[Rfam]
RNA sequence: UAACUACUACCCUGUAGCUACUUUGAGUUACGAUAAUUACUAUGUUAAUUUACGAGAUUAUAGUAACUCCUUACUAAGUGGUUUACUAUAACGUUAUGAUAAAUAUCCCCAUGUGUUAUAAUAACCUAACUAUCGUAAAUAUGUAUUUGCAUUAUCGUAAAUUAGUAUAUAAAAUUAUCGUAAAUGGAGGUGGCUACAGAAUAACUUAUUUUGUAGCUG
Numbered sequence: 001u002a003a004c005u006a007c008u009a010c011c012c013u014g015u016a017g018c019u020a021c022u023u024u025g026a027g028u029u030a031c032g033a034u035a036a037u038u039a040c041u042a043u044g045u046u047a048a049u050u051u052a053c054g055a056g057a058u059u060a061u062a063g064u065a066a067c068u069c070c071u072u073a074c075u076a077a078g079u080g081g082u083u084u085a086c087u088a089u090a091a092c093g094u095u096a097u098g099a100u101a102a103a104u105a106u107c108c109c110c111a112u113g114u115g116u117u118a119u120a121a122u123a124a125c126c127u128a129a130c131u132a133u134c135g136u137a138a139a140u141a142u143g144u145a146u147u148u149g150c151a152u153u154a155u156c157g158u159a160a161a162u163u164a165g166u167a168u169a170u171a172a173a174a175u176u177a178u179c180g181u182a183a184a185u186g187g188a189g190g191u192g193g194c195u196a197c198a199g200a201a202u203a204a205c206u207u208a209u210u211u212u213g214u215a216g217c218u219g
Stems, first nucleotide, its partner, number of pairs: 002211002005208002008203002012199013028183011041169013056156003060152002063148001065146001071138004078133006084123002087120008098108001
Description
Rfam assigns this 219-nucleotide sequence from Miscanthus lutarioriparius to the family "MIR6217 microRNA precursor family". Lineage of the source: Eukaryota > Streptophytina > Spermatophyta > Andropogoneae > Miscanthus.